Bacteroides sRNA BTnc049: a 102-nucleotide sequence from Bacteroides xylanisolvens. For this family Rfam cites "A high-resolution transcriptome map identifies small RNA regulation of metabolism in the gut microbe Bacteroides thetaiotaomicron" (Ryan et al., Nat Commun, 2020). The sequence is in the family's curated seed alignment. By type it is a small RNA. The family's consensus secondary structure is taken from published work.

RNA sequence: ACAGAAAGGGAUUGUGAAAUUCCAAGAAUAGAAUAGUUUAGUUAAGUCUAGUUUAGUUUUUGUGUUGAUCGGAAGCCUGCGAGCGAGCAUGAGCUUCCGAUU
Numbered sequence: 001a002c003a004g005a006a007a008g009g010g011a012u013u014g015u016g017a018a019a020u021u022c023c024a025a026g027a028a029u030a031g032a033a034u035a036g037u038u039u040a041g042u043u044a045a046g047u048c049u050a051g052u053u054u055a056g057u058u059u060u061u062g063u064g065u066u067g068a069u070c071g072g073a074a075g076c077c078u079g080c081g082a083g084c085g086a087g088c089a090u091g092a093g094c095u096u097c098c099g100a101u102u
Stems, first nucleotide, its partner, number of pairs: 001063005009022005035054002038051004070099007077091001078089003